Shown here is a 122-nucleotide sequence from Pseudomonas sp. ABC1, a member of the family "Pseudomonas rpsL leader". Rfam links the family to the GO term regulation of gene expression. For this family Rfam cites "Premature terminator analysis sheds light on a hidden world of bacterial transcriptional attenuation" (Naville and Gautheret, Genome Biol, 2010). Taxonomically the source falls in Pseudomonas (Bacteria, Gammaproteobacteria, Pseudomonadales, Pseudomonadaceae). It scores 102 bits against the family's covariance model.

Nucleotides: 122
Base pairs, nucleotide, nucleotide: 004018005017006016007015022053024051026049027048028047029046030045031044034041035040060082061081062080063079064078065077066076067075068074089119091117093115094114095104096103097102
Number, partner (000 for none) and nucleotide at each position: 001000u002000g003000g004018c005017g006016g007015g008000u009000g010000u011000c012000u013000g014000c015007c016006u017005u018004g019000a020000c021000g022053g023000u024051g025000u026049a027048c028047g029046g030045g031044a032000a033000g034041c035040u036000c037000u038000u039000u040035a041034g042000a043000c044031u045030c046029u047028c048027g049026u050000a051024c052000c053022c054000c055000u056000a057000a058000u059000u060082u061081g062080g063079c064078g065077g066076g067075g068074c069000g070000u071000u072000u073000u074068g075067c076066c077065c078064u079063g080062c081061c082060a083000u084000u085000u086000u087000u088000c089119g090000u091117u092000u093115g094114u095104g096103u097102c098000g099000a100000a101000a102097g103096a104095c105000a106000a107000c108000a109000g110000u111000g112000g113000a114094g115093c116000u117091a118000g119089u120000a121000g122000a